[Rfam]
RNA sequence: CAAUACAUGUGGCAUACCCGCUGAAAGGCGGGGACGCAAAGCCGUGGGUCUAACGGGACUUUUACCUAUGACUGCCUGGUUGCUCUU
Numbered sequence: 001c002a003a004u005a006c007a008u009g010u011g012g013c014a015u016a017c018c019c020g021c022u023g024a025a026a027g028g029c030g031g032g033g034a035c036g037c038a039a040a041g042c043c044g045u046g047g048g049u050c051u052a053a054c055g056g057g058a059c060u061u062u063u064a065c066c067u068a069u070g071a072c073u074g075c076c077u078g079g080u081u082g083c084u085c086u087u
Base pairs, nucleotide, nucleotide: 012037013036017032018031019030020029021028022027040081041080042079043078046076047075048072049071050070055066056065058063
RNA: c-di-GMP-I riboswitch aptamer